[Rfam]
RNA sequence: UGCCUGAUGCCACGUCACUGUGAGCCACGAGCAUUGAGCAGUGAUGCUAUGAUCAGGCCGAGACAAAGCUGAUUCUGGCGUCUCACAAGUUGAUAGGAACCUGGGGACUGCUCUUCCAUCGGUCCACAGAGCCGGUUACUGUGACUACAUUU
Numbered sequence: 001u002g003c004c005u006g007a008u009g010c011c012a013c014g015u016c017a018c019u020g021u022g023a024g025c026c027a028c029g030a031g032c033a034u035u036g037a038g039c040a041g042u043g044a045u046g047c048u049a050u051g052a053u054c055a056g057g058c059c060g061a062g063a064c065a066a067a068g069c070u071g072a073u074u075c076u077g078g079c080g081u082c083u084c085a086c087a088a089g090u091u092g093a094u095a096g097g098a099a100c101c102u103g104g105g106g107a108c109u110g111c112u113c114u115u116c117c118a119u120c121g122g123u124c125c126a127c128a129g130a131g132c133c134g135g136u137u138a139c140u141g142u143g144a145c146u147a148c149a150u151u152u
Base pairs, nucleotide, nucleotide: 002058003057004056005055006054007053008052009050013046014045015044016043017042018041020039021038024032025031083144084143085142086141087140096133097132101129102128103127105125106124107123108122109121